[Rfam]
RNA sequence: CCACCAUCCAGAGCGGCCGAGAGAUCUGGCUCGACGACGCCGCAGCAACCCGCGGGGGUUCACCCCCACCGCACGGUGCUACCGCCAGGACCGAUGGAGG
Numbered sequence: 001c002c003a004c005c006a007u008c009c010a011g012a013g014c015g016g017c018c019g020a021g022a023g024a025u026c027u028g029g030c031u032c033g034a035c036g037a038c039g040c041c042g043c044a045g046c047a048a049c050c051c052g053c054g055g056g057g058g059u060u061c062a063c064c065c066c067c068a069c070c071g072c073a074c075g076g077u078g079c080u081a082c083c084g085c086c087a088g089g090a091c092c093g094a095u096g097g098a099g100g
Stems, first nucleotide, its partner, number of pairs: 001100002004097005013043005021032003026088004044080004049076002052072004084092001
Dot-bracket structure: ((.(((((....(((((...(((..[[[[)))......)))))((((.((.((((.............))))..))))))...(]]]]...)))))).))